[Rfam]
RNA sequence: UAUUUCCUUGUCUUGGGGAGCAUAGUGCGCAGUGAUCGUAAAGUGAGAGCACUUAUGCUGACACCCAGUUAUACUUGUAUAACAUACCCGCGCCCGGUUGCCGUAAAGGGAGUCCGAGCGCAAUUUUUGUAAGG
Numbered sequence: 001u002a003u004u005u006c007c008u009u010g011u012c013u014u015g016g017g018g019a020g021c022a023u024a025g026u027g028c029g030c031a032g033u034g035a036u037c038g039u040a041a042a043g044u045g046a047g048a049g050c051a052c053u054u055a056u057g058c059u060g061a062c063a064c065c066c067a068g069u070u071a072u073a074c075u076u077g078u079a080u081a082a083c084a085u086a087c088c089c090g091c092g093c094c095c096g097g098u099u100g101c102c103g104u105a106a107a108g109g110g111a112g113u114c115c116g117a118g119c120g121c122a123a124u125u126u127u128u129g130u131a132a133g134g
Stems, first nucleotide, its partner, number of pairs: 005019005020058004024053005030047001037043001090121004095116001096114004101109001
The family of this 134-nucleotide sequence from Bicyclus anynana is "U4atac minor spliceosomal RNA". Pairs were carried over by alignment from the consensus structure, which is taken from published work. Rfam 15.1 lists 1,648 matches to the family in 818 species. A reference for the family is Lorkovic et al. (2005), "Evolutionary conservation of minor U12-type spliceosome between plants and humans", RNA. Gene Ontology terms of the family: pre-mRNA 5'-splice site binding, U4atac snRNP and spliceosomal tri-snRNP complex assembly.